The family of this 86-nucleotide sequence from Oryza sativa is "mir-395 microRNA precursor family".
The source organism's lineage runs through Eukaryota, Euphyllophyta, commelinids, Oryzeae and Oryza sativa.
On this family, see Jones-Rhoades and Bartel, Mol Cell 2004: "Computational Identification of Plant MicroRNAs and Their Targets, Including a Stress-Induced miRNA".
Rfam links the family to the GO terms miRNA-mediated post-transcriptional gene silencing and RISC complex.
It is one of the family's seed sequences.
Rfam 15.1 lists 2,798 matches to the family in 234 species.
Rfam's curators write: mir-395 was identified in both Arabidopsis thaliana and Oryza sativa computationally and was later experimentally verified. mir-395 is thought to target mRNAs coding for ATP sulphurylases. The mature sequence is excised from the 3' arm of the hairpin.
RNA sequence: GUAUCACCGUGAGUUCCCUUCAAGCACUUCACGUGGCACUAUUUCAAUGCCUAUUGUGAAGUGUUUGGGGGAACUCUCGAUGUUCC
Dot-bracket structure: ....((.((.((((((((((.((((((((((((..(...............)..)))))))))))))))))))))).)).))....
Numbered sequence: 001g002u003a004u005c006a007c008c009g010u011g012a013g014u015u016c017c018c019u020u021c022a023a024g025c026a027c028u029u030c031a032c033g034u035g036g037c038a039c040u041a042u043u044u045c046a047a048u049g050c051c052u053a054u055u056g057u058g059a060a061g062u063g064u065u066u067g068g069g070g071g072a073a074c075u076c077u078c079g080a081u082g083u084u085c086c
Stems, first nucleotide, its partner, number of pairs: 005082002008079002011076010022066012036052001